[Rfam]
RNA sequence: UGUCUCCUCCACCCUCCUCCUUUGGUGGAUUCAAACCCCAAGCCAAACCGCUUGGGGUUUUUUUU
Numbered sequence: 001u002g003u004c005u006c007c008u009c010c011a012c013c014c015u016c017c018u019c020c021u022u023u024g025g026u027g028g029a030u031u032c033a034a035a036c037c038c039c040a041a042g043c044c045a046a047a048c049c050g051c052u053u054g055g056g057g058u059u060u061u062u063u064u065u
Base pairs, nucleotide, nucleotide: 008029009028010027011026012025013024035058036057037056038055039054040053041052042051